[Rfam]
RNA sequence: ACAUCACCAUCAUCAUCCUGACUAGUCUUUCGGGAGGAUACGCCUCGCUCUGGAAGACGGACAAAAACUCUUCCAGCGGUCAUUAGAAAUAACAGAAUUCAGACCCUCGGAAGAACUCACUUCCGAGGGUUUUUUCGU
Number, nucleotide and partner (000 for none) at each position: 001a000002c000003a000004u000005c000006a000007c000008c000009a000010u047011c000012a039013u038014c037015a000016u000017c034018c033019u032020g031021a030022c000023u000024a000025g000026u000027c000028u000029u000030u021031c020032g019033g018034g017035a000036g000037g014038a013039u012040a000041c000042g000043c000044c000045u000046c000047g010048c000049u000050c076051u075052g074053g073054a072055a071056g070057a069058c000059g000060g000061a000062c000063a000064a000065a000066a000067a000068c000069u057070c056071u055072u054073c053074c052075a051076g050077c000078g000079g000080u000081c000082a000083u000084u000085a000086g000087a000088a000089a000090u000091a000092a000093c000094a000095g135096a134097a133098u000099u000100c000101a132102g131103a130104c129105c128106c127107u126108c125109g124110g123111a122112a121113g120114a000115a000116c000117u000118c000119a000120c113121u112122u111123c110124c109125g108126a107127g106128g105129g104130u103131u102132u101133u097134u096135u095136c000137g000138u000
The family of this 138-nucleotide RNA from Photobacterium proteolyticum is "Histidine operon leader". Lineage of the source: Bacteria > Pseudomonadati > Vibrionales > Vibrionaceae > Photobacterium. Rfam's curators write: At least 6 amino acid operons are known to be regulated by attenuation. A search with the family's covariance model found it, with a score of 83 bits.